[Rfam]
RNA sequence: AUCACCUGGGCACCUUGUUAAAAUGCAGACUCUUUUUAGUAGAUCUGGAGUGGGUCCCAGUAUUCUGCAUUUCUAACAAGUUCCCACAUGAUGCUGA
Numbered sequence: 001a002u003c004a005c006c007u008g009g010g011c012a013c014c015u016u017g018u019u020a021a022a023a024u025g026c027a028g029a030c031u032c033u034u035u036u037u038a039g040u041a042g043a044u045c046u047g048g049a050g051u052g053g054g055u056c057c058c059a060g061u062a063u064u065c066u067g068c069a070u071u072u073c074u075a076a077c078a079a080g081u082u083c084c085c086a087c088a089u090g091a092u093g094c095u096g097a
Base pairs, nucleotide, nucleotide: 003090004089009084010083014080015079016078017077018076019075020074021072022071023070025068026067027066028065029064031062033060
mir-544 microRNA precursor family: a 97-nucleotide RNA sequence from Canis lupus. The literature on the family includes a 2010 paper in Genes Dev by Chiang et al., "Mammalian microRNAs: experimental evaluation of novel and previously annotated genes". The base pairs follow the family's consensus structure, which was predicted with RNAalifold. Rfam links the family to the GO terms miRNA-mediated post-transcriptional gene silencing and RISC complex. Taxonomically the source falls in Canis lupus (Eukaryota, Bilateria, Tetrapoda, Canis).